RNA sequence: ACUUGUUGCGGGCGAGAAGCGAAUGGGUGCCCGCAACACCAGACACAACACCGUGCCACGGGAACAUCGUGGCAUUUCAGGGCGUU
Numbered sequence: 001a002c003u004u005g006u007u008g009c010g011g012g013c014g015a016g017a018a019g020c021g022a023a024u025g026g027g028u029g030c031c032c033g034c035a036a037c038a039c040c041a042g043a044c045a046c047a048a049c050a051c052c053g054u055g056c057c058a059c060g061g062g063a064a065c066a067u068c069g070u071g072g073c074a075u076u077u078c079a080g081g082g083c084g085u086u
Stems, first nucleotide, its partner, number of pairs: 004038011053075008
RNA: nrdJ RNA
Organism: Streptomyces sp. MMG1533